Rfam assigns this 81-nucleotide RNA sequence from Varanus komodoensis to the family "Small nucleolar RNA SNORD20".
[Rfam]
RNA sequence: UGGAAAUGAUGAUUUCUCGCUGAAAUGAUGUGAUCCGAAUCACACAUGAACACUCCUUAAGAUAGUCAAGUCCUGAUCCAG
Numbered sequence: 001u002g003g004a005a006a007u008g009a010u011g012a013u014u015u016c017u018c019g020c021u022g023a024a025a026u027g028a029u030g031u032g033a034u035c036c037g038a039a040u041c042a043c044a045c046a047u048g049a050a051c052a053c054u055c056c057u058u059a060a061g062a063u064a065g066u067c068a069a070g071u072c073c074u075g076a077u078c079c080a081g
Stems, first nucleotide, its partner, number of pairs: 001080004
The base pairs follow the family's consensus structure. The match comes from Rfam's covariance-model search (46 bits). Its family is annotated with RNA processing and nucleolus in the Gene Ontology. For this family Rfam cites "U20, a novel small nucleolar RNA, is encoded in an intron of the nucleolin gene in mammals" (Nicoloso et al., Mol Cell Biol, 1994). U20 is a C/D box small nucleolar RNA that is encoded in intron 11 of the nucleolin gene in human, mouse and rat. Taxonomically the source falls in Varanus (Eukaryota, Opisthokonta, Teleostomi, Toxicofera). Rfam 15.1 lists 573 matches to the family in 527 species.